[Rfam]
RNA: permuted transfer-messenger RNA
Organism: Maricaulis salignorans
RNA sequence: GGCGAUAAACGCGCUCGUAAUAACCAGACCGGACCCGGGGGCAGUACCCGGCGGCUCCACCAUUACCUUCAGCUUGUAUUGGCAAGCGAUUAUGGGGCCGAAACAGGAUUGACGGAUGGGUAAAGGGGAAUGCUUUUGCCCGGGUGAGGCCCGAUACAGGCUCAUUCUUAAAGUUGCCAAUGACAACUUUGCUGAAGAAGUUCGUCUCGCUGCCUAG
Numbered sequence: 001g002g003c004g005a006u007a008a009a010c011g012c013g014c015u016c017g018u019a020a021u022a023a024c025c026a027g028a029c030c031g032g033a034c035c036c037g038g039g040g041g042c043a044g045u046a047c048c049c050g051g052c053g054g055c056u057c058c059a060c061c062a063u064u065a066c067c068u069u070c071a072g073c074u075u076g077u078a079u080u081g082g083c084a085a086g087c088g089a090u091u092a093u094g095g096g097g098c099c100g101a102a103a104c105a106g107g108a109u110u111g112a113c114g115g116a117u118g119g120g121u122a123a124a125g126g127g128g129a130a131u132g133c134u135u136u137u138g139c140c141c142g143g144g145u146g147a148g149g150c151c152c153g154a155u156a157c158a159g160g161c162u163c164a165u166u167c168u169u170a171a172a173g174u175u176g177c178c179a180a181u182g183a184c185a186a187c188u189u190u191g192c193u194g195a196a197g198a199a200g201u202u203c204g205u206c207u208c209g210c211u212g213c214c215u216a217g
Stems, first nucleotide, its partner, number of pairs: 001140005014128003025118002029115003035051005052100007141153004